[Rfam]
RNA sequence: CUAAUUGUUUAAAUCACACACAUUCCGACACGUAUUCCGGGGUGCUCCAAGUGGAGUCGGAUAUACGGGGGAUGUGGAGGCCUAAC
Numbered sequence: 001c002u003a004a005u006u007g008u009u010u011a012a013a014u015c016a017c018a019c020a021c022a023u024u025c026c027g028a029c030a031c032g033u034a035u036u037c038c039g040g041g042g043u044g045c046u047c048c049a050a051g052u053g054g055a056g057u058c059g060g061a062u063a064u065a066c067g068g069g070g071g072a073u074g075u076g077g078a079g080g081c082c083u084a085a086c
Base pairs, nucleotide, nucleotide: 019076020075021074022073023072024071025070026069031067032066033065034064035063036061037060038059039058044057045056046055047054048053